[Rfam]
RNA sequence: AGCGCGAUCGGGUCGACCGCGCGCGUGGCCAGCAGGUAGUCACGGAUGGCGAUGCCGUGCCGGCCCUC
Numbered sequence: 001a002g003c004g005c006g007a008u009c010g011g012g013u014c015g016a017c018c019g020c021g022c023g024c025g026u027g028g029c030c031a032g033c034a035g036g037u038a039g040u041c042a043c044g045g046a047u048g049g050c051g052a053u054g055c056c057g058u059g060c061c062g063g064c065c066c067u068c
Base pairs, nucleotide, nucleotide: 005062006061008059011030012029013028016026017025035056036055037054038053040052041051043049

ASdes TB sRNA: a 68-nucleotide RNA sequence from Catellatospora sp. IY07-71. The family's RNA type in Rfam is small RNA. The family's consensus secondary structure is taken from published work. Lineage of the source: Bacteria > Actinomycetota > Micromonosporales > Micromonosporaceae > Catellatospora.